[Rfam]
RNA: t44 RNA
RNA sequence: CUCACUUUAUACAAUACUCACGCCUGUCGGCACGAUUGGUGGGGUGCUGGUAAUGUCUCAGGACAUGUCGGUCAUCAGUCGGGACAGUGCGGAGGCGUAAC
Numbered sequence: 001c002u003c004a005c006u007u008u009a010u011a012c013a014a015u016a017c018u019c020a021c022g023c024c025u026g027u028c029g030g031c032a033c034g035a036u037u038g039g040u041g042g043g044g045u046g047c048u049g050g051u052a053a054u055g056u057c058u059c060a061g062g063a064c065a066u067g068u069c070g071g072u073c074a075u076c077a078g079u080c081g082g083g084a085c086a087g088u089g090c091g092g093a094g095g096c097g098u099a100a101c
Base pairs, nucleotide, nucleotide: 021091022090023089024087025086026085027084028083033081034080035079036078037077038076039075040074041073046072047071048070049069050068051067052066